[Rfam]
Rfam assigns this 116-nucleotide RNA from Undibacterium sp. KW1 to the family "Group II catalytic intron D1-D4-2". The source organism's lineage runs through Bacteria, Pseudomonadota, Betaproteobacteria, Burkholderiales and Undibacterium. The base pairs follow the family's consensus structure. A reference for the family is Bonen and Vogel (2001), "The ins and outs of group II introns", Trends Genet. Group II introns are found in rRNA, tRNA and mRNA of organelles in fungi, plants and protists, and also in mRNA in bacteria. Gene Ontology term of the family: Group II intron splicing.

RNA sequence: GAGGGUAUGGCCCCUCGCAAUCGGCUUGCAGGAGCGAGUUGCAAACCACCAUAAGCGGCACUGGUCAAAAGCCUUUGUCGUGAGCGUUAUGGAAAAGGCGCCUCAAGGCGUCAGGU
Numbered sequence: 001g002a003g004g005g006u007a008u009g010g011c012c013c014c015u016c017g018c019a020a021u022c023g024g025c026u027u028g029c030a031g032g033a034g035c036g037a038g039u040u041g042c043a044a045a046c047c048a049c050c051a052u053a054a055g056c057g058g059c060a061c062u063g064g065u066c067a068a069a070a071g072c073c074u075u076u077g078u079c080g081u082g083a084g085c086g087u088u089a090u091g092g093a094a095a096a097g098g099c100g101c102c103u104c105a106a107g108g109c110g111u112c113a114g115g116u
Stems, first nucleotide, its partner, number of pairs: 001016005017042005024035004047115001049092006055081002058078003063073003097112006